RNA sequence: UCCCGCCCAACGGUGUGGCUUCGGAUGCGGGGGAAUUCGUGAGGGAAGAGGCAUGUAAGUGUUCGGCUGAAGGAAAAAAAAAGUGAAAGUCAGUUUGACAAAGUUCACCGCGGGAGCCUGCCGCGCUGUUCUUAAAGGUACAGUAGCGCCUAAGUAUGGGACAAGAAUUAAGUAAGCAUAAAGUUUUUGUUAAGCAAUUAAAAGAAGCUUUAAAGACACAGGGAGUAAAGGUUAAGAGGAAUUUUCUUUUUAAGUUCUUUGACCUUAUUAAGGACACCUGUCCGU
Numbered sequence: 001u002c003c004c005g006c007c008c009a010a011c012g013g014u015g016u017g018g019c020u021u022c023g024g025a026u027g028c029g030g031g032g033g034a035a036u037u038c039g040u041g042a043g044g045g046a047a048g049a050g051g052c053a054u055g056u057a058a059g060u061g062u063u064c065g066g067c068u069g070a071a072g073g074a075a076a077a078a079a080a081a082a083g084u085g086a087a088a089g090u091c092a093g094u095u096u097g098a099c100a101a102a103g104u105u106c107a108c109c110g111c112g113g114g115a116g117c118c119u120g121c122c123g124c125g126c127u128g129u130u131c132u133u134a135a136a137g138g139u140a141c142a143g144u145a146g147c148g149c150c151u152a153a154g155u156a157u158g159g160g161a162c163a164a165g166a167a168u169u170a171a172g173u174a175a176g177c178a179u180a181a182a183g184u185u186u187u188u189g190u191u192a193a194g195c196a197a198u199u200a201a202a203a204g205a206a207g208c209u210u211u212a213a214a215g216a217c218a219c220a221g222g223g224a225g226u227a228a229a230g231g232u233u234a235a236g237a238g239g240a241a242u243u244u245u246c247u248u249u250u251u252a253a254g255u256u257c258u259u260u261g262a263c264c265u266u267a268u269u270a271a272g273g274a275c276a277c278c279u280g281u282c283c284g285u
Stems, first nucleotide, its partner, number of pairs: 006033003013028003038051001040049001094138003098133001103131001106128001109125005144164001146162001149160004169212003172208002219261008229247003234242001270285001272283004
Dot-bracket structure: .....(((....(((..........)))..)))....(.(........).)..........................................(((.(....(..(..(((((.......)))))..)..).)..))).....(.(..((((....)))).).)....(((((.................................)).)))......((((((((..(((..(.......)..)))......))))))))........(.((((....)))).)
RNA: Mason-Pfizer monkey virus packaging signal